[Rfam]
Shown here is a 99-nucleotide sequence from Indicator maculatus, a member of the family "mraW RNA". The family's RNA type in Rfam is cis-regulatory element. It scores 61 bits against the family's covariance model. The base pairs follow the family's consensus structure, which is taken from published work.

RNA sequence: AAAACAUGAAAUGUUUCGUUCCCAUCCCGUUCACCCUGACCUGGCAUCCUGCCAGGUCAGGGUGAACGGGAUGGGAACGGAACAUUUCUUAUUCUCCCA
Numbered sequence: 001a002a003a004a005c006a007u008g009a010a011a012u013g014u015u016u017c018g019u020u021c022c023c024a025u026c027c028c029g030u031u032c033a034c035c036c037u038g039a040c041c042u043g044g045c046a047u048c049c050u051g052c053c054a055g056g057u058c059a060g061g062g063u064g065a066a067c068g069g070g071a072u073g074g075g076a077a078c079g080g081a082a083c084a085u086u087u088c089u090u091a092u093u094c095u096c097c098c099a
Base pairs, nucleotide, nucleotide: 010086011085012084013083014082015081016080018078019077021075022074023073024072025071026070027069028068029067030066031065032064033063034062035061036060037059038058039057040056041055042054043053044052045051046050
The organism belongs to Indicator, within Eukaryota.